[Rfam]
A member of the RNA family "SAM riboswitch aptamer (S box leader)" from a Bacteroidales bacterium, 117 nucleotides long. A search with the family's covariance model found it, with a score of 68 bits.
Nucleotides: 117
Stems, first nucleotide, its partner, number of pairs: 001117008013043005021032003026079004044071004049067002051063004075109001081105003
Number, partner (000 for none) and nucleotide at each position: 001117g002116a003115u004114u005113u006112a007111u008110a009000a010000a011000g012000a013043a014042g015041g016040g017039u018000g019000g020000a021032g022031a023030g024000a025000u026079u027078a028077g029076g030023c031022u032021c033000u034000g035000c036000g037000a038000a039017a040016c041015c042014c043013u044071a045070g046069c047068a048000a049067c050066c051063u052062u053061c054060c055000c056000c057000g058000c059000a060054g061053g062052g063051a064000g065000u066050g067049g068047u069046g070045c071044u072000a073000a074000a075109a076029c077028c078027u079026a080000a081105u082104c083103c084000c085000g086000a087000a088000a089000c090000a091000c092000g093000c094000g095000a096000g097000u098000g099000c100000c101000g102000a103083g104082g105081g106000a107000g108000a109075u110008u111007a112006u113005a114004a115003a116002u117001u